[Rfam]
RNA sequence: AAAAGGUAAAAGGGGGUGACAGUGGGAGCGUUCAUGUCGCGGCUCCUGUCAGAUACACGCCUCUGCAAAUUCUGCU
Numbered sequence: 001a002a003a004a005g006g007u008a009a010a011a012g013g014g015g016g017u018g019a020c021a022g023u024g025g026g027a028g029c030g031u032u033c034a035u036g037u038c039g040c041g042g043c044u045c046c047u048g049u050c051a052g053a054u055a056c057a058c059g060c061c062u063c064u065g066c067a068a069a070u071u072c073u074g075c076u
Stems, first nucleotide, its partner, number of pairs: 013046005021076007028040003050065004
Mammalian CPEB3 ribozyme: a 76-nucleotide RNA from Neodiprion lecontei. Pairs were carried over by alignment from the consensus structure, which is taken from published work. Taxonomically the source falls in Neodiprion (Eukaryota, Mandibulata, Neoptera, Tenthredinoidea).